[Rfam]
Nucleotides: 117
Base pairs, nucleotide, nucleotide: 001113002112003111004109005108006107007106008105010104011103014100015099016095017094018093019092020091021090043078044077047074048073
Number, partner (000 for none) and nucleotide at each position: 001113g002112g003111c004109u005108g006107g007106u008105c009000u010104g011103a012000a013000g014100g015099u016095a017094g018093u019092g020091a021090g022000u023000u024000a025000u026000c027000u028000c029000a030000a031000u032000u033000g034000a035000u036000u037000g038000u039000u040000c041000a042000u043078g044077g045000u046000c047074a048073g049000u050000u051000a052000c053000a054000g055000a056000u057000c058000a059000a060000a061000c062000u063000c064000c065000u066000u067000g068000u069000u070000c071000c072000a073048u074047u075000c076000u077044u078043u079000c080000c081000c082000c083000a084000a085000c086000c087000c088000u089000u090021c091020u092019c093018a094017c095016u096000a097000c098000u099015g100014u101000a102000c103011u104010u105008g106007a107006c108005u109004a110000u111003g112002c113001u114000u115000u116000a117000a

The record is a 117-nucleotide RNA from Saimiri boliviensis, which matches "Y RNA" in Rfam.
Taxonomically the source falls in Saimiri boliviensis (Eukaryota, Dipnotetrapodomorpha, Theria, Primates).
Rfam's curators write: Y RNAs are components of the Ro ribonucleoprotein particle (Ro RNP), in association with Ro60 and La proteins. The Y RNAs and Ro60 and La proteins are well conserved, but the function of the Ro RNP is not known.
The match comes from Rfam's covariance-model search (52 bits).
Pairs were carried over by alignment from the consensus structure, which is taken from published work.